[Rfam]
RNA: Small nucleolar RNA Z118/Z121/Z120
Organism: Triticum aestivum
RNA sequence: UGUUUGCUGUGAUGAAUCACCAGGACGGUAUCUGAGUAAUGUUGAUAUCGAAAAAGACCUCCUUCCUUGAUUACACAUCCUAAACUGAUCAUAUAUUCUGAGCAAACA
Numbered sequence: 001u002g003u004u005u006g007c008u009g010u011g012a013u014g015a016a017u018c019a020c021c022a023g024g025a026c027g028g029u030a031u032c033u034g035a036g037u038a039a040u041g042u043u044g045a046u047a048u049c050g051a052a053a054a055a056g057a058c059c060u061c062c063u064u065c066c067u068u069g070a071u072u073a074c075a076c077a078u079c080c081u082a083a084a085c086u087g088a089u090c091a092u093a094u095a096u097u098c099u100g101a102g103c104a105a106a107c108a
Base pairs, nucleotide, nucleotide: 001108002107003106004105005104006103007102036066038064039063041061